The record is a 141-nucleotide RNA sequence from Flagellimonas lutaonensis, which matches "SAM riboswitch aptamer (S box leader)" in Rfam. NCBI's taxonomy places the organism under Bacteria, Pseudomonadati, Bacteroidota, Flavobacteriaceae, Flagellimonas. The match comes from Rfam's covariance-model search (63 bits). On this family, see Grundy and Henkin, Mol Microbiol 1998: "The S box regulon: a new global transcription termination control system for methionine and cysteine biosynthesis genes in gram-positive bacteria".
RNA sequence: AAGUUAUCAAGAAAGGUGGAGGGAAUAGACCCUGUGAAGCCUUAGCAACCCUCAACUUUGAGAAGGUGCUAAAUUCUACCCCGUCCCAAAUUUAAAUUGGGACCUCUUGGCGGCAAAGACCGACCAUUGGGAAGGAUAACG
Numbered sequence: 001a002a003g004u005u006a007u008c009a010a011g012a013a014a015g016g017u018g019g020a021g022g023g024a025a026u027a028g029a030c031c032c033u034g035u036g037a038a039g040c041c042u043u044a045g046c047a048a049c050c051c052u053c054a055a056c057u058u059u060g061a062g063a064a065g066g067u068g069c070u071a072a073a074u075u076c077u078a079c080c081c082c083g084u085c086c087c088a089a090a091u092u093u094a095a096a097u098u099g100g101g102a103c104c105u106c107u108u109g110g111c112g113g114c115a116a117a118g119a120c121c122g123a124c125c126a127u128u129g130g131g132a133a134g135g136a137u138a139a140c141g
Stems, first nucleotide, its partner, number of pairs: 003140006013043005021032003026078004044070004049066002051062004074134001079131003